[Rfam]
RNA sequence: ACACCCGACCGGACGCACGUCGGAAGGAUCGGAAGCCCGGUUCGUCCGCGACAGUCGACCGGCGGGUCUUCCGAACCGAGGCGUCAUG
Numbered sequence: 001a002c003a004c005c006c007g008a009c010c011g012g013a014c015g016c017a018c019g020u021c022g023g024a025a026g027g028a029u030c031g032g033a034a035g036c037c038c039g040g041u042u043c044g045u046c047c048g049c050g051a052c053a054g055u056c057g058a059c060c061g062g063c064g065g066g067u068c069u070u071c072c073g074a075a076c077c078g079a080g081g082c083g084u085c086a087u088g
Stems, first nucleotide, its partner, number of pairs: 001084002004081002009062004014057002019052002026043007065077002
The record is an 88-nucleotide sequence from Streptomyces sp. AcH 505, which matches "dauA ncRNA motif" in Rfam. The base pairs follow the family's consensus structure, which is taken from published work. NCBI's taxonomy places the organism under Bacteria, Actinomycetes, Kitasatosporales, Streptomycetaceae, Streptomyces. For this family Rfam cites "The discovery of novel noncoding RNAs in 50 bacterial genomes" (Narunsky et al., Nucleic Acids Res, 2024). By type it is a cis-regulatory element. Rfam describes the family as follows. dauA ncRNA motif was reported as a strong cis regulatory motif candidate, with potential to be a cis regulatory riboswitch type, it have been identified in genomes of the genus Streptomyces. The sequence is in the family's curated seed alignment.